[Rfam]
RNA: Small nucleolar RNA snoR8a
RNA sequence: AGAGUUAGCGAUAAUUAUAAAAAUAAUUCUUCAUUUUGACUUGCUUAAGUUGGACAUAACAAAUCUCUUAUUACAACCAUAGAAUUUGAGCUCU
Numbered sequence: 001a002g003a004g005u006u007a008g009c010g011a012u013a014a015u016u017a018u019a020a021a022a023a024u025a026a027u028u029c030u031u032c033a034u035u036u037u038g039a040c041u042u043g044c045u046u047a048a049g050u051u052g053g054a055c056a057u058a059a060c061a062a063a064u065c066u067c068u069u070a071u072u073a074c075a076a077c078c079a080u081a082g083a084a085u086u087u088g089a090g091c092u093c094u
Base pairs, nucleotide, nucleotide: 003094004093007092008091